[Rfam]
RNA: Fluoride riboswitch aptamer (crcB RNA motif)
RNA sequence: UAUCCUAUAGGUGAUGGAGUUCACCGAAACUGCGGAACGCUAAUGACUCCUACCAGAAA
Number, nucleotide and partner (000 for none) at each position: 001u000002a000003u000004c000005c000006u000007a000008u000009a000010g025011g024012u023013g022014a000015u000016g050017g049018a048019g047020u046021u045022c013023a012024c011025c010026g000027a000028a000029a000030c000031u000032g040033c039034g000035g000036a000037a000038c000039g033040c032041u000042a000043a000044u000045g021046a020047c019048u018049c017050c016051u000052a000053c000054c000055a000056g000057a000058a000059a000